[Rfam]
RNA sequence: AUCAGAUCGAUGAUGUUAUUUUAAAACUGCGUUAUCUAUCUUAAGAUCUCCGAAAUAGGAGCUGCGGAUACUAAACAGAACGCUGAGAUCUGAU
Numbered sequence: 001a002u003c004a005g006a007u008c009g010a011u012g013a014u015g016u017u018a019u020u021u022u023a024a025a026a027c028u029g030c031g032u033u034a035u036c037u038a039u040c041u042u043a044a045g046a047u048c049u050c051c052g053a054a055a056u057a058g059g060a061g062c063u064g065c066g067g068a069u070a071c072u073a074a075a076c077a078g079a080a081c082g083c084u085g086a087g088a089u090c091u092g093a094u
Stems, first nucleotide, its partner, number of pairs: 001094007
RNA: Small nucleolar RNA snoR27
Organism: Raphanus sativus